[Rfam]
Annotation:
Rfam assigns this 127-nucleotide RNA sequence from Triplophysa rosa to the family "Small nucleolar RNA SNORA65". A reference for the family is Huttenhofer et al. (2001), "RNomics: an experimental approach that identifies 201 candidates for novel, small, non-messenger RNAs in mouse", EMBO J. Its family is annotated with nucleolus and RNA processing in the Gene Ontology. A search with the family's covariance model found it, with a score of 83 bits. It is annotated as an H/ACA-box small nucleolar RNA. The base pairs follow the family's consensus structure, which was predicted with RNAalifold. The organism belongs to Triplophysa, within Eukaryota. From the family's description: U65 belongs to the H/ACA class of snoRNAs which are thought to guide the sites of modification of uridines to pseudouridines.
RNA sequence: CCCGCCACUAAGCAUGUCUGAUAAAGUGACAGUGUUUAAUCCAGUGGAGGCUGAUAGUGACCCAGCUCUAGGAAGCAGGGCUGCUCAACUAAGUGGGUAACCUUGUGCCAAAUGAUUUGGAACAAUG
Numbered sequence: 001c002c003c004g005c006c007a008c009u010a011a012g013c014a015u016g017u018c019u020g021a022u023a024a025a026g027u028g029a030c031a032g033u034g035u036u037u038a039a040u041c042c043a044g045u046g047g048a049g050g051c052u053g054a055u056a057g058u059g060a061c062c063c064a065g066c067u068c069u070a071g072g073a074a075g076c077a078g079g080g081c082u083g084c085u086c087a088a089c090u091a092a093g094u095g096g097g098u099a100a101c102c103u104u105g106u107g108c109c110a111a112a113u114g115a116u117u118u119g120g121a122a123c124a125a126u127g
Base pairs, nucleotide, nucleotide: 005047006046007045008044009043018034022029062120063119064118065117067114069112071109072108076105077104078103079102080101084097085096086095